[Rfam]
RNA sequence: GUCCACCAGACCGUUUCGGCAGAAGCGGGGGAACCACUUCUCGGUCCCGGUCCGCCCGGGACCUCGGGGUGAAGCUCGCCCGGACGUGCGCGUCCGGGCGGCCGGGUGACUCCCACCCGAACCCGACAGCUCACCCCGCAGGCGCAGGGAGGAACA
Numbered sequence: 001g002u003c004c005a006c007c008a009g010a011c012c013g014u015u016u017c018g019g020c021a022g023a024a025g026c027g028g029g030g031g032a033a034c035c036a037c038u039u040c041u042c043g044g045u046c047c048c049g050g051u052c053c054g055c056c057c058g059g060g061a062c063c064u065c066g067g068g069g070u071g072a073a074g075c076u077c078g079c080c081c082g083g084a085c086g087u088g089c090g091c092g093u094c095c096g097g098g099c100g101g102c103c104g105g106g107u108g109a110c111u112c113c114c115a116c117c118c119g120a121a122c123c124c125g126a127c128a129g130c131u132c133a134c135c136c137c138g139c140a141g142g143c144g145c146a147g148g149g150a151g152g153a154a155c156a
Stems, first nucleotide, its partner, number of pairs: 002023002025139006035066001067124003075101001077100010104118004
c-di-AMP riboswitch aptamer (ydaO/yuaA leader): a 156-nucleotide sequence from Kocuria flava. The source organism's lineage runs through Bacteria, Bacillati, Actinomycetota, Micrococcaceae and Kocuria.